Record summary:
Small nucleolar RNA SNORA57: a 149-nucleotide sequence. Rfam's curators write: U99 belongs to the H/ACA class of snoRNAs which are thought to guide the sites of modification of uridines to pseudouridines, the target for this family is unknown. The family's RNA type in Rfam is H/ACA-box small nucleolar RNA. The sequence is in the family's curated seed alignment.
[Rfam]
RNA sequence: CCUCCUUUUCUUGGCGGGGAUCGGGCUUGUGGUGCCGCUCCCCGUAAUGUACGGAGGAAGAGGGAAAGGGCUCUGGCCCCCUCGGCGUCAUGUCUUCGGUGCUGGCGGCUUCCCAUCCGCUGGUUCUAUCCUCAAACGCCGGGACACCG
Numbered sequence: 001c002c003u004c005c006u007u008u009u010c011u012u013g014g015c016g017g018g019g020a021u022c023g024g025g026c027u028u029g030u031g032g033u034g035c036c037g038c039u040c041c042c043c044g045u046a047a048u049g050u051a052c053g054g055a056g057g058a059a060g061a062g063g064g065a066a067a068g069g070g071c072u073c074u075g076g077c078c079c080c081c082u083c084g085g086c087g088u089c090a091u092g093u094c095u096u097c098g099g100u101g102c103u104g105g106c107g108g109c110u111u112c113c114c115a116u117c118c119g120c121u122g123g124u125u126c127u128a129u130c131c132u133c134a135a136a137c138g139c140c141g142g143g144a145c146a147c148c149g
Stems, first nucleotide, its partner, number of pairs: 001057005015044006022037003083141006102123007